[Rfam]
RNA sequence: UAUUUUUGCAGCCGAAUUACAACACAUGUAGUUCAUACAUAAAAAUCAUUUAUAAAAUAUUAGCAUG
Numbered sequence: 001u002a003u004u005u006u007u008g009c010a011g012c013c014g015a016a017u018u019a020c021a022a023c024a025c026a027u028g029u030a031g032u033u034c035a036u037a038c039a040u041a042a043a044a045a046u047c048a049u050u051u052a053u054a055a056a057a058u059a060u061u062a063g064c065a066u067g
Base pairs, nucleotide, nucleotide: 014034015033016032017031018030019029
Rfam assigns this 67-nucleotide RNA sequence to the family "S15-Flavobacteria ribosomal protein leader". Pairs were carried over by alignment from the consensus structure, which is taken from published work. It is annotated as a cis-regulatory leader. Clan: Ribosomal Protein S15 Leader clan. It is one of the family's seed sequences.